RNA sequence: CAACAGCUGAAAGGAGGUGACCCAGUGUCUCAUUGUCCUCAUCCGAGUGUGGAAGCCGCGACCCGGGUCGCCGCUUACGAGGUCUCCAAGUAAGCGCCGAGUUGCGGGCCGCACUGCGGUCCGACAAUGGAAGGGCCGGUUCUCGCAAGAGAGCCGGCCC
Numbered sequence: 001c002a003a004c005a006g007c008u009g010a011a012a013g014g015a016g017g018u019g020a021c022c023c024a025g026u027g028u029c030u031c032a033u034u035g036u037c038c039u040c041a042u043c044c045g046a047g048u049g050u051g052g053a054a055g056c057c058g059c060g061a062c063c064c065g066g067g068u069c070g071c072c073g074c075u076u077a078c079g080a081g082g083u084c085u086c087c088a089a090g091u092a093a094g095c096g097c098c099g100a101g102u103u104g105c106g107g108g109c110c111g112c113a114c115u116g117c118g119g120u121c122c123g124a125c126a127a128u129g130g131a132a133g134g135g136c137c138g139g140u141u142c143u144c145g146c147a148a149g150a151g152a153g154c155c156g157g158c159c160c
Stems, first nucleotide, its partner, number of pairs: 016023002031129007044060002047057001061068002069106003072101001075099001109119004133160012

Shown here is a 160-nucleotide sequence from Phenylobacterium sp. Root1277, a member of the family "caulobacter sRNA CC2171". NCBI's taxonomy places the organism under Bacteria, Pseudomonadati, Caulobacterales, Caulobacteraceae, Phenylobacterium. A search with the family's covariance model found it, with a score of 95 bits. Rfam classes the family as a small RNA. The base pairs follow the family's consensus structure, which was predicted with RNAalifold. A reference for the family is Landt et al. (2008), "Small non-coding RNAs in Caulobacter crescentus", Mol Microbiol.